[Rfam]
RNA sequence: GGAUAUCGUCCUACCUGUGCACUAUUAGAGAGCAAUGGUACCUCUAAUACUGUCAGGUAAAGACGAUAUCC
Number, nucleotide and partner (000 for none) at each position: 001g071002g070003a069004u068005a067006u066007c065008g064009u063010c062011c000012u059013a058014c057015c056016u055017g054018u000019g000020c052021a051022c000023u049024a048025u047026u046027a045028g044029a043030g000031a000032g000033c000034a000035a000036u000037g000038g000039u000040a000041c000042c000043u029044c028045u027046a026047a025048u024049a023050c000051u021052g020053u000054c017055a016056g015057g014058u013059a012060a000061a000062g010063a009064c008065g007066a006067u005068a004069u003070c002071c001
This 71-nucleotide RNA from Steinernema hermaphroditum belongs to the Rfam family "mir-236 microRNA precursor family". Clan: mir-8 microRNA precursor clan. The match comes from Rfam's covariance-model search (66 bits). The family's consensus secondary structure was predicted with RNAalifold. The family has 8 seed sequences and 52 matches in Rfam 15.1.